Shown here is an 80-nucleotide RNA sequence from Owenia fusiformis, a member of the family "Small nucleolar RNA SNORD35". U35 is a C/D box snoRNA located in intron 6 of ribosomal protein L13A and intron 3 of ribosomal protein S11 in humans and at homologous positions in mouse and chicken ribosomal protein genes. The source organism's lineage runs through Eukaryota, Opisthokonta, Spiralia, Annelida and Owenia. By type it is a C/D-box small nucleolar RNA. The literature on the family includes a 1996 paper in J Mol Biol by Nicoloso et al., "Intron-encoded, antisense small nucleolar RNAs: the characterization of nine novel species points to their direct role as guides for the 2'-O-ribose methylation of rRNAs". Pairs were carried over by alignment from the consensus structure, which was predicted with PFOLD. The match comes from Rfam's covariance-model search (36 bits). Its Rfam clan is "SNORD35 clan".

RNA sequence: UCAGCAUGAUGAUUUUGUAUCACGAUGGUCUACUGAGCUUUUAAAGCAUUGUUGACACCUGUAUACACUGACUGAAUUAU
Numbered sequence: 001u002c003a004g005c006a007u008g009a010u011g012a013u014u015u016u017g018u019a020u021c022a023c024g025a026u027g028g029u030c031u032a033c034u035g036a037g038c039u040u041u042u043a044a045a046g047c048a049u050u051g052u053u054g055a056c057a058c059c060u061g062u063a064u065a066c067a068c069u070g071a072c073u074g075a076a077u078u079a080u
Stems, first nucleotide, its partner, number of pairs: 001075004